[Rfam]
RNA sequence: AUCACGGCUUCGUCACCGACGCCGCAUUUUCGCCCCGAUCGGGCCAAGCGGGCGCCCUGUUGCAUGAGUGAAAUGGCAAUGUUGCCUCGACGGCUCGGCUCUGCCGGUUUUCGGUUUGUCAGCCCCCCAGCCCCCCGAAAAUCUGGCGGGGUCGAGCCAUCGAGUCGAGGCCAACUCAGCGGCUGGCGCCCUGCGCCGGCCGUUUU
Numbered sequence: 001a002u003c004a005c006g007g008c009u010u011c012g013u014c015a016c017c018g019a020c021g022c023c024g025c026a027u028u029u030u031c032g033c034c035c036c037g038a039u040c041g042g043g044c045c046a047a048g049c050g051g052g053c054g055c056c057c058u059g060u061u062g063c064a065u066g067a068g069u070g071a072a073a074u075g076g077c078a079a080u081g082u083u084g085c086c087u088c089g090a091c092g093g094c095u096c097g098g099c100u101c102u103g104c105c106g107g108u109u110u111u112c113g114g115u116u117u118g119u120c121a122g123c124c125c126c127c128c129a130g131c132c133c134c135c136c137g138a139a140a141a142u143c144u145g146g147c148g149g150g151g152u153c154g155a156g157c158c159a160u161c162g163a164g165u166c167g168a169g170g171c172c173a174a175c176u177c178a179g180c181g182g183c184u185g186g187c188g189c190c191c192u193g194c195g196c197c198g199g200c201c202g203u204u205u206u
Stems, first nucleotide, its partner, number of pairs: 036167001037053001040050002084166001086164005092158011105145003109140006122131002180202010
The record is a 206-nucleotide sequence from Allobosea sp. AAP35, which matches "Bradyrhizobiaceae sRNA BjrC174" in Rfam. The organism belongs to Allobosea, within Bacteria. On this family, see Madhugiri et al., RNA Biol 2012: "Small RNAs of the Bradyrhizobium/Rhodopseudomonas lineage and their analysis".